RNA: Small nucleolar RNA Z103
Organism: Ricinus communis
Nucleotides: 107
Base pairs, nucleotide, nucleotide: 001107002106003105004104005103
Number, partner (000 for none) and nucleotide at each position: 001107a002106u003105g004104g005103a006000a007000g008000u009000g010000a011000u012000g013000a014000u015000u016000a017000u018000u019000u020000u021000c022000c023000c024000a025000a026000a027000u028000g029000a030000u031000c032000g033000a034000c035000c036000c037000u038000g039000a040000a041000c042000a043000a044000a045000c046000u047000g048000a049000g050000c051000g052000g053000u054000u055000u056000u057000a058000u059000u060000u061000c062000u063000c064000u065000u066000u067000u068000u069000c070000u071000u072000u073000a074000u075000u076000a077000a078000a079000a080000g081000a082000g083000a084000a085000u086000u087000c088000a089000a090000g091000c092000c093000a094000g095000a096000a097000a098000a099000c100000u101000g102000a103005u104004c105003c106002a107001u